[Rfam]
RNA sequence: AACUUAUCAAGAGAGAUACAAGGGAACGGCCCGUUUGAGUAUCCAGCAACCUGUAAAAACAAGGUGCUAAAUCCGGCAUUGAAUGCAAAGAUAAGAA
Numbered sequence: 001a002a003c004u005u006a007u008c009a010a011g012a013g014a015g016a017u018a019c020a021a022g023g024g025a026a027c028g029g030c031c032c033g034u035u036u037g038a039g040u041a042u043c044c045a046g047c048a049a050c051c052u053g054u055a056a057a058a059a060c061a062a063g064g065u066g067c068u069a070a071a072u073c074c075g076g077c078a079u080u081g082a083a084u085g086c087a088a089a090g091a092u093a094a095g096a097a
Stems, first nucleotide, its partner, number of pairs: 003095006013044001015043004022032003027075003045068004050064002052061003072089001076086004
This 97-nucleotide RNA sequence from Leptotrichia hofstadii belongs to the Rfam family "SAM riboswitch aptamer (S box leader)". The source organism's lineage runs through Bacteria, Fusobacteriati, Fusobacteriia, Leptotrichiaceae and Leptotrichia hofstadii. Pairs were carried over by alignment from the consensus structure, which is taken from published work.